Rfam assigns this 48-nucleotide RNA sequence to the family "chrB-b RNA".
The family's consensus secondary structure is taken from published work.

RNA sequence: CGGGGAUACCGCAGCCUCCCCCUCAGAUGGAUUUCCAUCCAAGCGCGC
Numbered sequence: 001c002g003g004g005g006a007u008a009c010c011g012c013a014g015c016c017u018c019c020c021c022c023u024c025a026g027a028u029g030g031a032u033u034u035c036c037a038u039c040c041a042a043g044c045g046c047g048c
Base pairs, nucleotide, nucleotide: 002021003020004019005018006017011048012047014046015045026039027038028037029036030035